[Rfam]
This 85-nucleotide RNA sequence from Malus baccata belongs to the Rfam family "Plastid-psbM 3UTR RNA". The match comes from Rfam's covariance-model search (62 bits). On this family, see Richter et al., Plant Commun 2023: "Retrograde signaling in plants: A critical review focusing on the GUN pathway and beyond". The organism belongs to Malus, within Eukaryota. Plastid psbM is a non-coding RNA (ncRNA) recognised in plastids. It was found in the three prime untranslated region (3UTR) of psbM gene, its 3UTR location suggests a role in transcript maturation. Pairs were carried over by alignment from the consensus structure, which was predicted with LocARNA.
RNA sequence: GAUAUGAUAGUAUGGAAGAAAGAUUCAAAUAUUUCUUUAUACCAUACUAACUAGUAUUGUUGAUGUAGUGUAUAAAGUUGUAUUG
Numbered sequence: 001g002a003u004a005u006g007a008u009a010g011u012a013u014g015g016a017a018g019a020a021a022g023a024u025u026c027a028a029a030u031a032u033u034u035c036u037u038u039a040u041a042c043c044a045u046a047c048u049a050a051c052u053a054g055u056a057u058u059g060u061u062g063a064u065g066u067a068g069u070g071u072a073u074a075a076a077g078u079u080g081u082a083u084u085g
Stems, first nucleotide, its partner, number of pairs: 006051001008049008017040001019038005